[Rfam]
RNA sequence: GUCGUCACCAGGGGGAGCCGGCGCCCCGGCUGAGAGGUCUCCGCGGACGGAGACGACCCCUAGAACCUGAUCCGGAUCAUACCGGCGUAGGAACGCGUGGGACAUGCUGGU
Numbered sequence: 001g002u003c004g005u006c007a008c009c010a011g012g013g014g015g016a017g018c019c020g021g022c023g024c025c026c027c028g029g030c031u032g033a034g035a036g037g038u039c040u041c042c043g044c045g046g047a048c049g050g051a052g053a054c055g056a057c058c059c060c061u062a063g064a065a066c067c068u069g070a071u072c073c074g075g076a077u078c079a080u081a082c083c084g085g086c087g088u089a090g091g092a093a094c095g096c097g098u099g100g101g102a103c104a105u106g107c108u109g110g111u
Stems, first nucleotide, its partner, number of pairs: 006099003011060004017030005037054007066091004072085004
The family of this 111-nucleotide sequence from Candidatus Defluviicoccus seviourii is "TPP riboswitch aptamer (THI element)". Gene Ontology term of the family: thiamine pyrophosphate binding.